The family of this 216-nucleotide RNA sequence from Rhizobiales bacterium GAS113 is "Group II catalytic intron D1-D4-6".
Rfam's curators write: Group II introns are found in rRNA, tRNA and mRNA of organelles in fungi, plants and protists, and also in mRNA in bacteria.
A search with the family's covariance model found it, with a score of 174 bits.

RNA sequence: AAAGUCCGAUACGAUGAAGGAGUAGCGAACCACAUCGGCCCCGAGCCGUGCGUCGCUGGCCGUGAGGCCAAUGAUGACGCGUCGGUAGGGGAUGGCAUAGGCCAACCAUCGAGCCGCGAUAGGGAUCCGGGUGCCGACGCUGUAGCUAUAGCGGAAGGCAACAUGGCCGAGCGCGCCAACGCGAGUGCUCGGGCAACCCGGCGUGGUCAGAGACCC
Numbered sequence: 001a002a003a004g005u006c007c008g009a010u011a012c013g014a015u016g017a018a019g020g021a022g023u024a025g026c027g028a029a030c031c032a033c034a035u036c037g038g039c040c041c042c043g044a045g046c047c048g049u050g051c052g053u054c055g056c057u058g059g060c061c062g063u064g065a066g067g068c069c070a071a072u073g074a075u076g077a078c079g080c081g082u083c084g085g086u087a088g089g090g091g092a093u094g095g096c097a098u099a100g101g102c103c104a105a106c107c108a109u110c111g112a113g114c115c116g117c118g119a120u121a122g123g124g125a126u127c128c129g130g131g132u133g134c135c136g137a138c139g140c141u142g143u144a145g146c147u148a149u150a151g152c153g154g155a156a157g158g159c160a161a162c163a164u165g166g167c168c169g170a171g172c173g174c175g176c177c178a179a180c181g182c183g184a185g186u187g188c189u190c191g192g193g194c195a196a197c198c199c200g201g202c203g204u205g206g207u208c209a210g211a212g213a214c215c216c
Stems, first nucleotide, its partner, number of pairs: 012037005019031002023184001025182002039091004045086004049081002051076005057070005110210001111208001113207006127201006133159003138153004164195002167192008